Shown here is a 126-nucleotide RNA sequence from Pectobacterium brasiliense, a member of the family "Phenylalanine leader peptide". The literature on the family includes a 1978 paper in Proc Natl Acad Sci U S A by Zurawski et al., "Nucleotide sequence of the leader region of the phenylalanine operon of Escherichia coli".

Nucleotides: 126
Stems, first nucleotide, its partner, number of pairs: 016093004021088013036073002042056004057067004097120010
Number, partner (000 for none) and nucleotide at each position: 001000c002000a003000u004000g005000a006000c007000g008000a009000a010000u011000a012000a013000a014000c015000u016093g017092u018091u019090c020000u021088u022087c023086u024085u025084c026083g027082u028081a029080u030079u031078c032077u033076u034000u035000u036073u037072c038000a039000c040000c041000u042056u043055c044054c045053c046000c047000u048000g049000a050000u051000u052000u053045g054044g055043g056042a057067g058066g059065c060064g061000a062000u063000u064060c065059g066058u067057c068000g069000u070000a071000a072037g073036a074000g075000c076033a077032a078031g079030a080029a081028u082027a083026c084025g085024a086023a087022g088021a089000c090019g091018a092017a093016c094000a095000a096000a097120a098119a099118a100117g101116c102115c103114u104113c105112c106111u107000g108000a109000c110000c111106a112105g113104g114103a115102g116101g117100c118099u119098u120097u121000u122000u123000u124000u125000a126000u